A member of the RNA family "MIR2655 microRNA precursor family" from Trifolium pratense, 240 nucleotides long. The family has 25 seed sequences and 892 matches in Rfam 15.1. Its family is annotated with miRNA-mediated post-transcriptional gene silencing and RISC complex in the Gene Ontology.
RNA sequence: CCCUUAUCUUUUAAAAGUUUCAAGUUGGUCCCUUAUCUUUUCUGCAGGUUUCAUAUUGGUCCAUCCCGUCAAAAUUUUCACUAUUACCGUUAAAUUUGGACACGUGGCAAACGGAAACCACAUUUGAAAAGAUGACACGUCCAAAUUUAACGGUAAUAGUGAAAAUUUUGACAGGAGGGACCAACUUGAAACCUGAAGAAAAGAUAAGGGACCAACUUGAAACUUUUAAAAGAUAAGGGA
Numbered sequence: 001c002c003c004u005u006a007u008c009u010u011u012u013a014a015a016a017g018u019u020u021c022a023a024g025u026u027g028g029u030c031c032c033u034u035a036u037c038u039u040u041u042c043u044g045c046a047g048g049u050u051u052c053a054u055a056u057u058g059g060u061c062c063a064u065c066c067c068g069u070c071a072a073a074a075u076u077u078u079c080a081c082u083a084u085u086a087c088c089g090u091u092a093a094a095u096u097u098g099g100a101c102a103c104g105u106g107g108c109a110a111a112c113g114g115a116a117a118c119c120a121c122a123u124u125u126g127a128a129a130a131g132a133u134g135a136c137a138c139g140u141c142c143a144a145a146u147u148u149a150a151c152g153g154u155a156a157u158a159g160u161g162a163a164a165a166u167u168u169u170g171a172c173a174g175g176a177g178g179g180a181c182c183a184a185c186u187u188g189a190a191a192c193c194u195g196a197a198g199a200a201a202a203g204a205u206a207a208g209g210g211a212c213c214a215a216c217u218u219g220a221a222a223c224u225u226u227u228a229a230a231a232g233a234u235a236a237g238g239g240a
Stems, first nucleotide, its partner, number of pairs: 002238007023217003027213003031209013045195003
Dot-bracket structure: .(((((((..............(((.(((.(((((((((((((.(((.................................................................................................................................................))).))))))))))))).))).)))..............)))))))..